[Rfam]
RNA sequence: UCCUUCUCGCCAAGCACCGGUCUUGAGCGGGAAUUGAUGGCCGCUAUCAUAGUGGGCCUUCAGGGCCGAAAGCGCAGUCCGUGUUGCCCACGGCAGUCGCAUGUGCCGGUGUGAACCGAUCGAUUGUCGGGGAGUCGCCGCCACCGCCCGAAUGCGCCGCGUGCGCACGAAAAAAGGCCUUCAUCUGACGAUGAAGGCCUUUUACU
Numbered sequence: 001u002c003c004u005u006c007u008c009g010c011c012a013a014g015c016a017c018c019g020g021u022c023u024u025g026a027g028c029g030g031g032a033a034u035u036g037a038u039g040g041c042c043g044c045u046a047u048c049a050u051a052g053u054g055g056g057c058c059u060u061c062a063g064g065g066c067c068g069a070a071a072g073c074g075c076a077g078u079c080c081g082u083g084u085u086g087c088c089c090a091c092g093g094c095a096g097u098c099g100c101a102u103g104u105g106c107c108g109g110u111g112u113g114a115a116c117c118g119a120u121c122g123a124u125u126g127u128c129g130g131g132g133a134g135u136c137g138c139c140g141c142c143a144c145c146g147c148c149c150g151a152a153u154g155c156g157c158c159g160c161g162u163g164c165g166c167a168c169g170a171a172a173a174a175a176g177g178c179c180u181u182c183a184u185c186u187g188a189c190g191a192u193g194a195a196g197g198c199c200u201u202u203u204a205c206u
Base pairs, nucleotide, nucleotide: 003036004033005032006031007030008029009028010027013024014023015020039058040057041056042054043053044052045051063149064148065147066146072100073099074098075096079093080092081091082090083089103144104143105142108138111135116130117129118128154166155165156164157163172203173202174201175200176199177198178197179196180195181194182193183192184191185190
RNA: Burkholderia sRNA 11
Organism: Paraburkholderia acidiphila